[Rfam]
RNA sequence: GUCGGCGACGGCGAUGGAGCUCGCCUCGGCCUCGGCCGGAACCGCGGAGACGCUGAUGGCCCCUGCCGUCCC
Numbered sequence: 001g002u003c004g005g006c007g008a009c010g011g012c013g014a015u016g017g018a019g020c021u022c023g024c025c026u027c028g029g030c031c032u033c034g035g036c037c038g039g040a041a042c043c044g045c046g047g048a049g050a051c052g053c054u055g056a057u058g059g060c061c062c063c064u065g066c067c068g069u070c071c072c
Stems, first nucleotide, its partner, number of pairs: 010025004016063002019060003044053003